Shown here is a 114-nucleotide RNA sequence from Onychostoma macrolepis, a member of the family "Potassium channel RNA editing signal".
Pairs were carried over by alignment from the consensus structure, which is taken from published work.
Rfam describes the family as follows. This family represents a group of sequences related to the human potassium channel Kv1.1 hairpin element which directs the efficient modification of an adenosine to inosine by an adenosine deaminase acting on RNA (ADAR). The ADAR modification causes an isoleucine/valine recoding event which lies in the ion-conducting pore of the potassium channel. It is thought that this editing event targets the process of fast inactivation and allows a more rapid recovery from inactivation at negative potentials.
By type it is a cis-regulatory element.
The source organism's lineage runs through Eukaryota, Metazoa, Craniata, Gnathostomata and Onychostoma.
[Rfam]
RNA sequence: GUGGGAUAUGGAGACAUGUGUCCUAUUACGUUAGGCGGUAAGAUUGUGGGCACUCUAUGUGCCAUUGCUGGGGUGCUGACCAUCGCCCUGCCUGUGCCUGUAAUCGUCUCCAAU
Numbered sequence: 001g002u003g004g005g006a007u008a009u010g011g012a013g014a015c016a017u018g019u020g021u022c023c024u025a026u027u028a029c030g031u032u033a034g035g036c037g038g039u040a041a042g043a044u045u046g047u048g049g050g051c052a053c054u055c056u057a058u059g060u061g062c063c064a065u066u067g068c069u070g071g072g073g074u075g076c077u078g079a080c081c082a083u084c085g086c087c088c089u090g091c092c093u094g095u096g097c098c099u100g101u102a103a104u105c106g107u108c109u110c111c112a113a114u
Stems, first nucleotide, its partner, number of pairs: 001114002004111002008107004014101003018097004037077004049063003